[Rfam]
RNA sequence: CCUGUGGACAAUUUUACAAACUGUAGUAGCAAGCUAGGUGGCGAGGCGGGAUUGGAUGAAACAGGAA
Numbered sequence: 001c002c003u004g005u006g007g008a009c010a011a012u013u014u015u016a017c018a019a020a021c022u023g024u025a026g027u028a029g030c031a032a033g034c035u036a037g038g039u040g041g042c043g044a045g046g047c048g049g050g051a052u053u054g055g056a057u058g059a060a061a062c063a064g065g066a067a
Stems, first nucleotide, its partner, number of pairs: 001065005009054005021049003029042002033039002